RNA sequence: UUUUUUAGGAAAGAUCCGGCCUUCCCACAAGGAGAGGCCAAGGAAUUUUCUU
Numbered sequence: 001u002u003u004u005u006u007a008g009g010a011a012a013g014a015u016c017c018g019g020c021c022u023u024c025c026c027a028c029a030a031g032g033a034g035a036g037g038c039c040a041a042g043g044a045a046u047u048u049u050c051u052u
Stems, first nucleotide, its partner, number of pairs: 008052002011049004015042001018039006025032001
Notes:
The record is a 52-nucleotide RNA from Lentivirus humimdef1, which matches "HIV Ribosomal frameshift signal" in Rfam. The base pairs follow the family's consensus structure, which is taken from published work. Lineage of the source: Viruses > Pararnavirae > Artverviricota > Ortervirales > Lentivirus humimdef1. About the family: This family represents the HIV Ribosomal frameshift signal. HIV uses a system called -1 ribosomal frameshifting to produce the required ratio of Gag and Gag-Pol polyproteins. The stem-loop structure of the frameshift signal is thought to impede the ribosome and cause slippage in the 5' direction, this causes the -1 frameshift and translation then continues in the new frame. For this family Rfam cites "The human immunodeficiency virus type 1 ribosomal frameshifting site is an invariant sequence determinant and an important target for antiviral therapy" (Biswas et al., J Virol, 2004).